[Rfam]
This 97-nucleotide RNA sequence from Lichenicoccus roseus belongs to the Rfam family "TPP riboswitch aptamer (THI element)".
RNA sequence: GACGCAUGACCGGGGUGUCCGCGCUUGGCGGACUGAGAUCACACCCGUCGAACCUGAUCUGGGUCAUUCCAGCGAAGGGAGGCAUGCAGUGGACAAA
Numbered sequence: 001g002a003c004g005c006a007u008g009a010c011c012g013g014g015g016u017g018u019c020c021g022c023g024c025u026u027g028g029c030g031g032a033c034u035g036a037g038a039u040c041a042c043a044c045c046c047g048u049c050g051a052a053c054c055u056g057a058u059c060u061g062g063g064u065c066a067u068u069c070c071a072g073c074g075a076a077g078g079g080a081g082g083c084a085u086g087c088a089g090u091g092g093a094c095a096a097a
Stems, first nucleotide, its partner, number of pairs: 006085003010081001011047004016041001017033005053078003059072004
Annotation: Rfam links the family to the GO term thiamine pyrophosphate binding. A search with the family's covariance model found it, with a score of 64 bits. Lineage of the source: Bacteria > Pseudomonadati > Pseudomonadota > Alphaproteobacteria > Lichenicoccus.